[Rfam]
Shown here is a 97-nucleotide sequence, a member of the family "PhotoRC-II RNA". It is one of the family's seed sequences. It is annotated as a cis-regulatory element.
RNA sequence: UAACACAUAUUUGCUCCCGCUUAACCAAGACCUAUGGGAGGAUAAAUUACGUCUUAAUAUCGUUAAGUGAAGGGAUUUAACGAAAAUAUAGUAUCGC
Numbered sequence: 001u002a003a004c005a006c007a008u009a010u011u012u013g014c015u016c017c018c019g020c021u022u023a024a025c026c027a028a029g030a031c032c033u034a035u036g037g038g039a040g041g042a043u044a045a046a047u048u049a050c051g052u053c054u055u056a057a058u059a060u061c062g063u064u065a066a067g068u069g070a071a072g073g074g075a076u077u078u079a080a081c082g083a084a085a086a087u088a089u090a091g092u093a094u095c096g097c
Base pairs, nucleotide, nucleotide: 014040015039016038017037018036028054029053030052031051060083061082062081063080064079065078066077